Source information
Small Nucleolar RNA SNORD64: a 67-nucleotide RNA sequence from Dipodomys ordii. It scores 82 bits against the family's covariance model. Its family is annotated with RNA processing and nucleolus in the Gene Ontology.
[Rfam]
RNA sequence: GGAUUUAUGAUGAGCUAUAUUUACUGAGCGUGAUGAGGUGAGGCUCAAUAUGACUACUCUGAAGUCU
Numbered sequence: 001g002g003a004u005u006u007a008u009g010a011u012g013a014g015c016u017a018u019a020u021u022u023a024c025u026g027a028g029c030g031u032g033a034u035g036a037g038g039u040g041a042g043g044c045u046c047a048a049u050a051u052g053a054c055u056a057c058u059c060u061g062a063a064g065u066c067u
Stems, first nucleotide, its partner, number of pairs: 001067005012059003020053002025047005
By type it is a C/D-box small nucleolar RNA. The family has 17 seed sequences and 130 matches in Rfam 15.1. Rfam's curators write: The human snoRNA HBII-13 belongs to the C/D family of snoRNAs. It is expressed mainly in the brain, but is also in the lungs, the kidneys and muscle. For this family Rfam cites "Identification of brain-specific and imprinted small nucleolar RNA genes exhibiting an unusual genomic organization" (Cavaille et al., Proc Natl Acad Sci U S A, 2000). The family's consensus secondary structure was predicted with RNAalifold.